Vault RNA: a 97-nucleotide sequence from Rhinoptilus africanus. The family's RNA type in Rfam is non-coding RNA gene. About the family: This family of RNAs are found as part of the enigmatic vault ribonucleoprotein complex. The complex consists of a major vault protein (MVP), two minor vault proteins (VPARP and TEP1), and several small untranslated RNA molecules. It has been suggested that the vault complex is involved in drug resistance. Lineage of the source: Eukaryota > Eumetazoa > Amniota > Neoaves > Rhinoptilus. A search with the family's covariance model found it, with a score of 51 bits.
RNA sequence: GGGCCGGCUAUAGCCCAGCAGUUACUUUGAUGUUUCACAAGCUCAUUGUGUUUUUCCCCGUGAGAGGUUUGAUCCUGCGGGCACCCCUGGCCCAUUU
Numbered sequence: 001g002g003g004c005c006g007g008c009u010a011u012a013g014c015c016c017a018g019c020a021g022u023u024a025c026u027u028u029g030a031u032g033u034u035u036c037a038c039a040a041g042c043u044c045a046u047u048g049u050g051u052u053u054u055u056c057c058c059c060g061u062g063a064g065a066g067g068u069u070u071g072a073u074c075c076u077g078c079g080g081g082c083a084c085c086c087c088u089g090g091c092c093c094a095u096u097u
Stems, first nucleotide, its partner, number of pairs: 002092006013082004018078004027072004